[Rfam]
RNA sequence: CCUGGAACAAUAUCCCGGUGCUGCCUGAGUGCUGUACAUACACUCCAGCAUCAGUGAUUUUGUUGCAGG
Numbered sequence: 001c002c003u004g005g006a007a008c009a010a011u012a013u014c015c016c017g018g019u020g021c022u023g024c025c026u027g028a029g030u031g032c033u034g035u036a037c038a039u040a041c042a043c044u045c046c047a048g049c050a051u052c053a054g055u056g057a058u059u060u061u062g063u064u065g066c067a068g069g
Base pairs, nucleotide, nucleotide: 006064007063008062009061010060012058013057014056015054017052018051019050020049021048022047023046
Shown here is a 69-nucleotide RNA from Muraenolepis orangiensis, a member of the family "mir-338 microRNA precursor family".
A reference for the family is Chen et al. (2005), "The developmental miRNA profiles of zebrafish as determined by small RNA cloning", Genes Dev.
Its family is annotated with miRNA-mediated post-transcriptional gene silencing and RISC complex in the Gene Ontology.
Lineage of the source: Eukaryota > Opisthokonta > Actinopterygii > Gadiformes > Muraenolepis.
The family has 36 seed sequences and 1,231 matches in Rfam 15.1.
The family's consensus secondary structure was predicted with RNAalifold.